L31-Firmicutes ribosomal protein leader: a 34-nucleotide sequence from Exiguobacterium antarcticum. The literature on the family includes a 2020 paper in BMC Microbiol by Eckert and Weinberg, "Discovery of 20 novel ribosomal leader candidates in bacteria and archaea". Lineage of the source: Bacteria > Bacillota > Caryophanales > Exiguobacterium > Exiguobacterium antarcticum. Pairs were carried over by alignment from the consensus structure, which is taken from published work.
RNA sequence: CUCUGGCUCAGCAAAUGAACCAGGGCGGAAGGAG
Numbered sequence: 001c002u003c004u005g006g007c008u009c010a011g012c013a014a015a016u017g018a019a020c021c022a023g024g025g026c027g028g029a030a031g032g033a034g
Stems, first nucleotide, its partner, number of pairs: 001025005008018003